Shown here is a 119-nucleotide RNA from Novimethylophilus kurashikiensis, a member of the family "Betaproteobacteria-1 RNA". The family's RNA type in Rfam is small RNA. Pairs were carried over by alignment from the consensus structure, which is taken from published work. It scores 73 bits against the family's covariance model.
RNA sequence: CGCCCCGCAGGACGCGCGUACAAGGCACCAGCAACGGGGGGAUAGGUCGGACUGGGGGAUUGCGUGAGACCCGACACACGGCGGCGAAGGCAGCACCGUGACGCGAAAGGCUGUCGGGC
Numbered sequence: 001c002g003c004c005c006c007g008c009a010g011g012a013c014g015c016g017c018g019u020a021c022a023a024g025g026c027a028c029c030a031g032c033a034a035c036g037g038g039g040g041g042a043u044a045g046g047u048c049g050g051a052c053u054g055g056g057g058g059a060u061u062g063c064g065u066g067a068g069a070c071c072c073g074a075c076a077c078a079c080g081g082c083g084g085c086g087a088a089g090g091c092a093g094c095a096c097c098g099u100g101a102c103g104c105g106a107a108a109g110g111c112u113g114u115c116g117g118g119c
Stems, first nucleotide, its partner, number of pairs: 001041001003039005010032001028055004046075005077100005089115006